[Rfam]
RNA sequence: GGGACGGCUUAGCCGUGGGGAUACUUCGUUUGCUUCAAAACCUUUCACCGUCACUGAAAUAUGGGCUUCAUCGCCCAGUUUCCCCUGGCGCAGUCCGUUCCUUUU
Numbered sequence: 001g002g003g004a005c006g007g008c009u010u011a012g013c014c015g016u017g018g019g020g021a022u023a024c025u026u027c028g029u030u031u032g033c034u035u036c037a038a039a040a041c042c043u044u045u046c047a048c049c050g051u052c053a054c055u056g057a058a059a060u061a062u063g064g065g066c067u068u069c070a071u072c073g074c075c076c077a078g079u080u081u082c083c084c085c086u087g088g089c090g091c092a093g094u095c096c097g098u099u100c101c102u103u104u105u
Stems, first nucleotide, its partner, number of pairs: 002100006012089004017085004028068001
Dot-bracket structure: .((((((....((((.((((.......(.......................................).............)))))))).....)))))).....